[Rfam]
RNA sequence: CGUGCCCCUAAAGGCGUUGCAGAUAUGGCUGCUGUGCCAUGUUUGUGUCAUCAGGCGGCAGAGAGGAAGAGGCUGUGUCUACGCUCAGUGUUCUGAAAUAGUGCGCACUCAGAAUGAUUAGCAGCCUGACAUU
Numbered sequence: 001c002g003u004g005c006c007c008c009u010a011a012a013g014g015c016g017u018u019g020c021a022g023a024u025a026u027g028g029c030u031g032c033u034g035u036g037c038c039a040u041g042u043u044u045g046u047g048u049c050a051u052c053a054g055g056c057g058g059c060a061g062a063g064a065g066g067a068a069g070a071g072g073c074u075g076u077g078u079c080u081a082c083g084c085u086c087a088g089u090g091u092u093c094u095g096a097a098a099u100a101g102u103g104c105g106c107a108c109u110c111a112g113a114a115u116g117a118u119u120a121g122c123a124g125c126c127u128g129a130c131a132u133u
Stems, first nucleotide, its partner, number of pairs: 003060004007055003011051001013049003019046004024041006070127007082116002085113002088110001089107003093103001
Dot-bracket structure: ..(((((((.(.(((...((((.((((((......)))))).))))))).).))).)))).........(((((((.....((.((.((((.(.........).)))..).)).))....)))))))......

A member of the RNA family "Small nucleolar RNA SNORA17" from Pelusios castaneus, 133 nucleotides long. Pairs were carried over by alignment from the consensus structure, which was predicted with RNAalifold. Rfam links the family to the GO terms RNA processing and nucleolus. Clan: SNORA17 clan. It is annotated as an H/ACA-box small nucleolar RNA. A reference for the family is Ofengand and Bakin (1997), "Mapping to nucleotide resolution of pseudouridine residues in large subunit ribosomal RNAs from representative eukaryotes, prokaryotes, archaebacteria, mitochondria and chloroplasts", J Mol Biol. snoRNA ACA 17 belongs to the H/ACA family of snoRNAs and is predicted to guide pseudouridylation of the 28S rRNA at positions U4659 and U4598. It shares the same host gene together with ACA43.